[Rfam]
RNA sequence: GAAGUGGAUGAAAAUAGCCAAAUCUGAGCAUCAGAAGACCUUCCAGUCUACCUGAUGCAUGAUCUCUAUAGUUCUGAGA
Numbered sequence: 001g002a003a004g005u006g007g008a009u010g011a012a013a014a015u016a017g018c019c020a021a022a023u024c025u026g027a028g029c030a031u032c033a034g035a036a037g038a039c040c041u042u043c044c045a046g047u048c049u050a051c052c053u054g055a056u057g058c059a060u061g062a063u064c065u066c067u068a069u070a071g072u073u074c075u076g077a078g079a
Stems, first nucleotide, its partner, number of pairs: 028058005036049004

The family of this 79-nucleotide RNA from Molossus molossus is "Small nucleolar RNA U2-19". A reference for the family is Tycowski et al. (2004), "Guide RNAs with 5' Caps and Novel Box C/D snoRNA-like Domains for Modification of snRNAs in Metazoa", Curr Biol. NCBI's taxonomy places the organism under Eukaryota, Metazoa, Yangochiroptera, Molossidae, Molossus.